6S / SsrS RNA: a 180-nucleotide RNA sequence from Soehngenia longivitae. It is annotated as a non-coding RNA gene. The match comes from Rfam's covariance-model search (106 bits). The source organism's lineage runs through Bacteria, Bacillati, Bacillota, Tissierellaceae and Soehngenia.
RNA sequence: AGAAGUCUGCAGUGUUCGUUAUUCUUAUAUAAUUCAACCGACAUAUUUUAUAUGGGAACCCGACUGUUUGGCGUUGGAUAACAUGCCUAGUAAGCUAGGUAGUUAGAAAACGCCAACAGGGUACCCACCUGCAUCAGUGCGGGUGUGAAUUAAUAAAGAAGACGGCACUGCGGAUUUUUA
Numbered sequence: 001a002g003a004a005g006u007c008u009g010c011a012g013u014g015u016u017c018g019u020u021a022u023u024c025u026u027a028u029a030u031a032a033u034u035c036a037a038c039c040g041a042c043a044u045a046u047u048u049u050a051u052a053u054g055g056g057a058a059c060c061c062g063a064c065u066g067u068u069u070g071g072c073g074u075u076g077g078a079u080a081a082c083a084u085g086c087c088u089a090g091u092a093a094g095c096u097a098g099g100u101a102g103u104u105a106g107a108a109a110a111c112g113c114c115a116a117c118a119g120g121g122u123a124c125c126c127a128c129c130u131g132c133a134u135c136a137g138u139g140c141g142g143g144u145g146u147g148a149a150u151u152a153a154u155a156a157a158g159a160a161g162a163c164g165g166c167a168c169u170g171c172g173g174a175u176u177u178u179u180a
Stems, first nucleotide, its partner, number of pairs: 002178014017164003032150005037144003054126003058122004065116001069115007081103002086099005